Notes: This 87-nucleotide RNA from Gossypium harknessii belongs to the Rfam family "MIR7486 microRNA precursor family". Rfam 15.1 lists 10,132 matches to the family in 36 species. NCBI's taxonomy places the organism under Eukaryota, Streptophyta, Tracheophyta, Spermatophyta, Gossypium. Gene Ontology terms of the family: miRNA-mediated post-transcriptional gene silencing and RISC complex.
[Rfam]
RNA sequence: UAUGUCAGCGCGCUUUGAUGACGUGGCAGUAAAUCGCAUCCUAGAGGGAGCGAUUUGUCGACAUGUCAGCAAAGCGCGCUGACGUGG
Numbered sequence: 001u002a003u004g005u006c007a008g009c010g011c012g013c014u015u016u017g018a019u020g021a022c023g024u025g026g027c028a029g030u031a032a033a034u035c036g037c038a039u040c041c042u043a044g045a046g047g048g049a050g051c052g053a054u055u056u057g058u059c060g061a062c063a064u065g066u067c068a069g070c071a072a073a074g075c076g077c078g079c080u081g082a083c084g085u086g087g
Base pairs, nucleotide, nucleotide: 001086002085003084004083005082006081007080008079009078010077011076012075013074014073015072016071017070019068020067021066023064024063025062027060029058030057031056032055033054034053035052036051037050040047041046